[Rfam]
RNA sequence: AGAUGAGUUCCCUGUUUUGUGUCUUAUGAUGAAGCUUCAUAGGGCAGAUUCUGAGCUGAGAAAUUAAAUUUCUCUCCACUGAUAGUCUCUAUAUGCCAUCUGAAGACACAACAUGUGCA
Numbered sequence: 001a002g003a004u005g006a007g008u009u010c011c012c013u014g015u016u017u018u019g020u021g022u023c024u025u026a027u028g029a030u031g032a033a034g035c036u037u038c039a040u041a042g043g044g045c046a047g048a049u050u051c052u053g054a055g056c057u058g059a060g061a062a063a064u065u066a067a068a069u070u071u072c073u074c075u076c077c078a079c080u081g082a083u084a085g086u087c088u089c090u091a092u093a094u095g096c097c098a099u100c101u102g103a104a105g106a107c108a109c110a111a112c113a114u115g116u117g118c119a
Stems, first nucleotide, its partner, number of pairs: 017111008034099001038095003042088003047083001050082002053079001055077001058074005

This 119-nucleotide sequence from Thinocorus orbignyianus belongs to the Rfam family "Small nucleolar RNA SNORD90". The organism belongs to Thinocorus, within Eukaryota. It scores 52 bits against the family's covariance model. From the family's description: snoRNA HBII-295 belongs to the family of C/D snoRNAs. It is the human orthologue of the mouse MBII-295 and has no identified RNA target. The family's RNA type in Rfam is C/D-box small nucleolar RNA.